Rfam assigns this 321-nucleotide RNA sequence from Hypsibius exemplaris to the family "Nuclear RNase P". Rfam's curators write: Ribonuclease P (RNase P) is a ubiquitous endoribonuclease, found in archaea, bacteria and eukarya as well as chloroplasts and mitochondria. Its best characterised activity is the generation of mature 5'-ends of tRNAs by cleaving the 5'-leader elements of precursor-tRNAs. Lineage of the source: Eukaryota > Opisthokonta > Protostomia > Parachela > Hypsibius. Rfam 15.1 lists 3,848 matches to the family in 1,862 species.
RNA sequence: UUCUGGACAAUGCUUGUCACUGGGGGGUUACGACGGACCGACUCUUAAAUCGGUCACCUUUACCACCCUCGGGAAGGUCUGAGACUAAGGUCUGCGAAUAGCACUUCCUAGACGGAAGCGCUCUGAGAAGGGCGGCGGCGGACUAGAAACUACCCUCGCAGCGGACCAAACGGCAGGCGAUGGAGUGAAUUGGUCUUCGGACCAACUCCGAGGAUGGUCGGUCUGUCUGUUAGAUGUGGAAACGCUGCGACAGCUUCGCAGCACAAUUGACAAGUGGCGUCUCUGUGCGCCAUAACUCAAUUCAGACUAUUCUGUUCAGAA
Numbered sequence: 001u002u003c004u005g006g007a008c009a010a011u012g013c014u015u016g017u018c019a020c021u022g023g024g025g026g027g028u029u030a031c032g033a034c035g036g037a038c039c040g041a042c043u044c045u046u047a048a049a050u051c052g053g054u055c056a057c058c059u060u061u062a063c064c065a066c067c068c069u070c071g072g073g074a075a076g077g078u079c080u081g082a083g084a085c086u087a088a089g090g091u092c093u094g095c096g097a098a099u100a101g102c103a104c105u106u107c108c109u110a111g112a113c114g115g116a117a118g119c120g121c122u123c124u125g126a127g128a129a130g131g132g133c134g135g136c137g138g139c140g141g142a143c144u145a146g147a148a149a150c151u152a153c154c155c156u157c158g159c160a161g162c163g164g165a166c167c168a169a170a171c172g173g174c175a176g177g178c179g180a181u182g183g184a185g186u187g188a189a190u191u192g193g194u195c196u197u198c199g200g201a202c203c204a205a206c207u208c209c210g211a212g213g214a215u216g217g218u219c220g221g222u223c224u225g226u227c228u229g230u231u232a233g234a235u236g237u238g239g240a241a242a243c244g245c246u247g248c249g250a251c252a253g254c255u256u257c258g259c260a261g262c263a264c265a266a267u268u269g270a271c272a273a274g275u276g277g278c279g280u281c282u283c284u285g286u287g288c289g290c291c292a293u294a295a296c297u298c299a300a301u302u303c304a305g306a307c308u309a310u311u312c313u314g315u316u317c318a319g320a321a
Base pairs, nucleotide, nucleotide: 001321002320003319004318007315008314009313017269023070024069025068026067027066036055037054038053039052040051041050079305080304081303082302083301090251091250092249104118105117106116107115108114119134120133121132122131123130124129135248136247137246138245139244140243153233274293275292276291277290278289279288280287